[Rfam]
Source information:
The family of this 65-nucleotide sequence from Nitrospira japonica is "Fluoride riboswitch aptamer (crcB RNA motif)". Rfam 15.1 lists 2,293 matches to the family in 1,982 species. The organism belongs to Nitrospira, within Bacteria. It scores 53 bits against the family's covariance model.
RNA sequence: AUGUCUACAGGGGAUGGGGUCCCCCGUAUAACCGCCACGGCCAGGCUGAUGACUCCUACGUCGUA
Number, nucleotide and partner (000 for none) at each position: 001a000002u000003g000004u000005c000006u000007a000008c000009a000010g025011g024012g023013g022014a000015u000016g056017g055018g054019g053020u052021c051022c013023c012024c011025c010026g000027u000028a000029u000030a000031a000032c000033c000034g046035c045036c044037a000038c000039g000040g000041c000042c000043a000044g036045g035046c034047u000048g000049a000050u000051g021052a020053c019054u018055c017056c016057u000058a000059c000060g000061u000062c000063g000064u000065a000